[Rfam]
RNA sequence: GGUUUCAGUUGGUGCAAAUUCAAUCACCUGAAUUUGCAAUUUAAGAUGGGAAAGAAUUCCCCAUUGGUAACAAAUAGUUAUCCAUUAAGUGUGGGAAAUCCAGU
Numbered sequence: 001g002g003u004u005u006c007a008g009u010u011g012g013u014g015c016a017a018a019u020u021c022a023a024u025c026a027c028c029u030g031a032a033u034u035u036g037c038a039a040u041u042u043a044a045g046a047u048g049g050g051a052a053a054g055a056a057u058u059c060c061c062c063a064u065u066g067g068u069a070a071c072a073a074a075u076a077g078u079u080a081u082c083c084a085u086u087a088a089g090u091g092u093g094g095g096a097a098a099u100c101c102a103g104u
Stems, first nucleotide, its partner, number of pairs: 009023004059094002062091001063085002066082006
Dot-bracket structure: ........((((.......))))...................................((.(((.((((((.....)))))).)).....).))..........